[Rfam]
RNA sequence: AAUUGGAUAAUGACCAAACCUCGUAUAAGAUCGGGAAUAUGGCUCGAUCGUCUCUACCCAAAAGACCGUAAAUCUUUGGACUACGAGGGAAAGCGGAUCUAGG
Numbered sequence: 001a002a003u004u005g006g007a008u009a010a011u012g013a014c015c016a017a018a019c020c021u022c023g024u025a026u027a028a029g030a031u032c033g034g035g036a037a038u039a040u041g042g043c044u045c046g047a048u049c050g051u052c053u054c055u056a057c058c059c060a061a062a063a064g065a066c067c068g069u070a071a072a073u074c075u076u077u078g079g080a081c082u083a084c085g086a087g088g089g090a091a092a093g094c095g096g097a098u099c100u101a102g103g
Stems, first nucleotide, its partner, number of pairs: 019088007029049007058079003062076004
Purine riboswitch aptamer: a 103-nucleotide RNA from Caldalkalibacillus thermarum. The organism belongs to Caldalkalibacillus thermarum, within Bacteria.